[Rfam]
RNA sequence: GCGAAAUUAAGCUCGAGAUUCUCCGCAGACAUACAGUGGUGGCUUAGUUCCACCGUUUAAAAUCGGAUGGGAAGGUCUGAGAUGCCUUUUUUAUUUCUUAGAAGAUAUAGUUGUGAAACUAUUGUCACCUAACAGAAAUGCGUUGUUUUAAACAACUUGAAAUGGGUUGACUGGCAUGUGGGACAUGUUUUUGAAUGGAUGUGUUGCUAAUUAAGUCCAAUUUUCGAGACGUUAGUUACGUUUAACGAACUCAAUUCAGACUACUCUAAUUUCGC
Numbered sequence: 001g002c003g004a005a006a007u008u009a010a011g012c013u014c015g016a017g018a019u020u021c022u023c024c025g026c027a028g029a030c031a032u033a034c035a036g037u038g039g040u041g042g043c044u045u046a047g048u049u050c051c052a053c054c055g056u057u058u059a060a061a062a063u064c065g066g067a068u069g070g071g072a073a074g075g076u077c078u079g080a081g082a083u084g085c086c087u088u089u090u091u092u093a094u095u096u097c098u099u100a101g102a103a104g105a106u107a108u109a110g111u112u113g114u115g116a117a118a119c120u121a122u123u124g125u126c127a128c129c130u131a132a133c134a135g136a137a138a139u140g141c142g143u144u145g146u147u148u149u150a151a152a153c154a155a156c157u158u159g160a161a162a163u164g165g166g167u168u169g170a171c172u173g174g175c176a177u178g179u180g181g182g183a184c185a186u187g188u189u190u191u192u193g194a195a196u197g198g199a200u201g202u203g204u205u206g207c208u209a210a211u212u213a214a215g216u217c218c219a220a221u222u223u224u225c226g227a228g229a230c231g232u233u234a235g236u237u238a239c240g241u242u243u244a245a246c247g248a249a250c251u252c253a254a255u256u257c258a259g260a261c262u263a264c265u266c267u268a269a270u271u272u273c274g275c
Stems, first nucleotide, its partner, number of pairs: 001275004007269003012228007022067004038054005077259005083176004093106004107122006124171004129166002142156003230247006
RNA: Nuclear RNase P
Organism: Cryptosporidium muris